[Rfam]
RNA sequence: UACGACCGGCCGGACAUCCUUAUGCCCGGCCCACAAGUGGAGGCUCCGAUCUCCCACCUGGCUGCCCCUCAGGGGCGGCGGGUCACCGGUCAGGUGGUGCCCAUCGUUCCGUACGGACGAUGGAGCCGCCCGACGCGCCCCGUGGUACAUGCGCGGCGGUGCUCCGGUAGUCAGAAGGAGCCCUGCCUGUGUGCCGUCCGGGGCAUUUUUC
Numbered sequence: 001u002a003c004g005a006c007c008g009g010c011c012g013g014a015c016a017u018c019c020u021u022a023u024g025c026c027c028g029g030c031c032c033a034c035a036a037g038u039g040g041a042g043g044c045u046c047c048g049a050u051c052u053c054c055c056a057c058c059u060g061g062c063u064g065c066c067c068c069u070c071a072g073g074g075g076c077g078g079c080g081g082g083u084c085a086c087c088g089g090u091c092a093g094g095u096g097g098u099g100c101c102c103a104u105c106g107u108u109c110c111g112u113a114c115g116g117a118c119g120a121u122g123g124a125g126c127c128g129c130c131c132g133a134c135g136c137g138c139c140c141c142g143u144g145g146u147a148c149a150u151g152c153g154c155g156g157c158g159g160u161g162c163u164c165c166g167g168u169a170g171u172c173a174g175a176a177g178g179a180g181c182c183c184u185g186c187c188u189g190u191g192u193g194c195c196g197u198c199c200g201g202g203g204c205a206u207u208u209u210u211c
Base pairs, nucleotide, nucleotide: 004091005090006089007088008087009086012027013026028084029083030082031081032080034060035059037057038056039055040054041052042051061079062078063077064076065075066074067073093130094129095128096127097126101123102122103121104120105119106118107117108116137204138203139202140201141200142199143196144195145194152191153190154189155187156186157185158184159183161181162180163179164178165177
Dot-bracket structure: ...((((((..((............))(((((.((.((((((........)).)))).))(((((((.....)))))))))))).)))))).(((((...((((((((.......))))))))..)))))......(((((((((......((((((((.(((((...........))))).))))).)))..)))..)))))).......
A member of the RNA family "Streptomyces RNA 1601" from Streptomyces sp. MnatMP-M17, 211 nucleotides long. Rfam's curators write: Identified by deep sequencing of transcriptome at the end of exponential growth phase. Appears longer on northern blot than sequencing transcript. A search with the family's covariance model found it, with a score of 166 bits. The organism belongs to Streptomyces, within Bacteria. It is annotated as a small RNA.